[Rfam]
RNA sequence: GUAUGUUUGUGUGUGGAGGGUGUUCAGCACCAAGGACAGGUCUGUAUGUUUGCGUGUGGAAGGUGUUCAGCACCAAGGACAGGUGUGUAUAUUU
Number, nucleotide and partner (000 for none) at each position: 001g000002u000003a000004u085005g084006u083007u082008u081009g080010u079011g000012u000013g000014u000015g000016g000017a000018g000019g074020g073021u072022g071023u070024u069025c000026a067027g066028c065029a064030c063031c062032a000033a000034g055035g000036a000037c052038a051039g050040g049041u048042c000043u000044g000045u000046a000047u000048g041049u040050u039051u038052g037053c000054g000055u034056g000057u000058g000059g000060a000061a000062g031063g030064u029065g028066u027067u026068c000069a024070g023071c022072a021073c020074c019075a000076a000077g000078g000079a010080c009081a008082g007083g006084u005085g004086u000087g000088u000089a000090u000091a000092u000093u000094u000
RNA: mir-2060 microRNA precursor family